[Rfam]
RNA sequence: CCGAUCGAAACAUGUCGAAGCAUGACCUCUGCCGAGGUAGUUUGUCGGGUAGAGCGACCGAUUGGGGUGACCGCCUCCGAGAGGAGUCGGCACCCCUGUCGAACUCCGAACUGACAGACGCCAUUGACGCAGGGAGUCCGGUGUGCGGGGUAAGCCUGUGCACCAUGAGGGAGACAACCCAGAGCUGGGUUAAGGUCCCCAAGUGUGGACUAAGUGCAAUUGAAGGUGGUCUCGAGCCAUAGACAGCCGGGAGGUGAGCUUAGAAGCAGCUACCCUCUAAGAAAAGCGUAACAGCUUACCGGCCGAGGUUUGAGGCGCCCAAAAUUAUCGGGGCUCAAGUCCACCACCGAGACCUGGCGGCACGCGUUACAGCGUGAUUCCGUAGAUCGGCGCUCCGGUUGGAUGGAAGCGCGGGGGAGACUUCGUGUGGACCGACCGGUGACGAAAAU
Numbered sequence: 001c002c003g004a005u006c007g008a009a010a011c012a013u014g015u016c017g018a019a020g021c022a023u024g025a026c027c028u029c030u031g032c033c034g035a036g037g038u039a040g041u042u043u044g045u046c047g048g049g050u051a052g053a054g055c056g057a058c059c060g061a062u063u064g065g066g067g068u069g070a071c072c073g074c075c076u077c078c079g080a081g082a083g084g085a086g087u088c089g090g091c092a093c094c095c096c097u098g099u100c101g102a103a104c105u106c107c108g109a110a111c112u113g114a115c116a117g118a119c120g121c122c123a124u125u126g127a128c129g130c131a132g133g134g135a136g137u138c139c140g141g142u143g144u145g146c147g148g149g150g151u152a153a154g155c156c157u158g159u160g161c162a163c164c165a166u167g168a169g170g171g172a173g174a175c176a177a178c179c180c181a182g183a184g185c186u187g188g189g190u191u192a193a194g195g196u197c198c199c200c201a202a203g204u205g206u207g208g209a210c211u212a213a214g215u216g217c218a219a220u221u222g223a224a225g226g227u228g229g230u231c232u233c234g235a236g237c238c239a240u241a242g243a244c245a246g247c248c249g250g251g252a253g254g255u256g257a258g259c260u261u262a263g264a265a266g267c268a269g270c271u272a273c274c275c276u277c278u279a280a281g282a283a284a285a286g287c288g289u290a291a292c293a294g295c296u297u298a299c300c301g302g303c304c305g306a307g308g309u310u311u312g313a314g315g316c317g318c319c320c321a322a323a324a325u326u327a328u329c330g331g332g333g334c335u336c337a338a339g340u341c342c343a344c345c346a347c348c349g350a351g352a353c354c355u356g357g358c359g360g361c362a363c364g365c366g367u368u369a370c371a372g373c374g375u376g377a378u379u380c381c382g383u384a385g386a387u388c389g390g391c392g393c394u395c396c397g398g399u400u401g402g403a404u405g406g407a408a409g410c411g412c413g414g415g416g417g418a419g420a421c422u423u424c425g426u427g428u429g430g431a432c433c434g435a436c437c438g439g440u441g442a443c444g445a446a447a448a449u
Base pairs, nucleotide, nucleotide: 001390002389003388004387005386006385011024012023013022014021015020026136027134028133029132030131031130032129036122037121038120040119041118042117043116044115045114046113047112052107053105054104060100061099062098064096065095066094067093068092069091073088075086076085077084078083140164141163142162143161144160145159146158147157148156169180170179171178184358185357186356187355188354189353190352194348195347196346203345205344206343207342208341209340210339225319226318227317229316230315231314232313233312234311235310236309237308238307246303247302248301249300250299252276253275254274257271258270259269277281282297286295287294359380360379361376362375363374364373365372391444393441395439396438397437398436399435400434401433402432409428410427411426412425413424414423415422416421